The record is a 79-nucleotide RNA from Rhodamnia argentea, which matches "Small nucleolar RNA R21" in Rfam. Rfam 15.1 lists 472 matches to the family in 146 species. The base pairs follow the family's consensus structure, which was predicted with PFOLD. For this family Rfam cites "Identification of 66 box C/D snoRNAs in Arabidopsis thaliana: extensive gene duplications generated multiple isoforms predicting new ribosomal RNA 2'-O-methylation sites" (Barneche et al., J Mol Biol, 2001).

RNA sequence: AAUCCCUAUGAUGAUUGAGUUUUUCGGCAUAAAAGUAGUGGACUGACUUUUAUCUGAUGAAUCUAAGCUCCGAGGGAUG
Number, nucleotide and partner (000 for none) at each position: 001a000002a078003u077004c076005c075006c074007u000008a000009u000010g000011a000012u000013g000014a000015u000016u000017g000018a000019g000020u000021u000022u000023u000024u000025c000026g000027g000028c000029a000030u000031a000032a000033a000034a000035g000036u000037a000038g000039u000040g000041g000042a000043c000044u000045g000046a000047c000048u000049u000050u000051u000052a000053u000054c000055u000056g000057a000058u000059g000060a000061a000062u000063c000064u000065a000066a000067g000068c000069u000070c000071c000072g000073a000074g006075g005076g004077a003078u002079g000